[Rfam]
RNA: osmY RNA
Organism: Erwinia tracheiphila
RNA sequence: ACAGCCACGUCGUUUGUGGCUGAAAGCUCACAGUUGUGAAUGCAAUAACAUGAAGAAGGAAGUGUCAUG
Numbered sequence: 001a002c003a004g005c006c007a008c009g010u011c012g013u014u015u016g017u018g019g020c021u022g023a024a025a026g027c028u029c030a031c032a033g034u035u036g037u038g039a040a041u042g043c044a045a046u047a048a049c050a051u052g053a054a055g056a057a058g059g060a061a062g063u064g065u066c067a068u069g
Stems, first nucleotide, its partner, number of pairs: 002022008026041001028039003